[Rfam]
RNA sequence: ACUCAGGCACGACGCGCGCCAUAAGGGUGGUAACCGUUUUUCGAGCUGAUCGGAAGGUGCCACCUGCGGCCUCGAGUGGCCGCCACGUUGCGCGCGACCGACCUGAAGUUCAACCCUGAGGGA
Numbered sequence: 001a002c003u004c005a006g007g008c009a010c011g012a013c014g015c016g017c018g019c020c021a022u023a024a025g026g027g028u029g030g031u032a033a034c035c036g037u038u039u040u041u042c043g044a045g046c047u048g049a050u051c052g053g054a055a056g057g058u059g060c061c062a063c064c065u066g067c068g069g070c071c072u073c074g075a076g077u078g079g080c081c082g083c084c085a086c087g088u089u090g091c092g093c094g095c096g097a098c099c100g101a102c103c104u105g106a107a108g109u110u111c112a113a114c115c116c117u118g119a120g121g122g123a
Base pairs, nucleotide, nucleotide: 001109002108003107004105005104006103007102013096014095015094016093017092018091019090027086028085029084030083031082
L31-Corynebacteriaceae ribosomal protein leader: a 123-nucleotide sequence from Corynebacterium ciconiae. A reference for the family is Eckert and Weinberg (2020), "Discovery of 20 novel ribosomal leader candidates in bacteria and archaea", BMC Microbiol. The family's RNA type in Rfam is cis-regulatory leader. Taxonomically the source falls in Corynebacterium ciconiae (Bacteria, Bacillati, Mycobacteriales, Corynebacterium).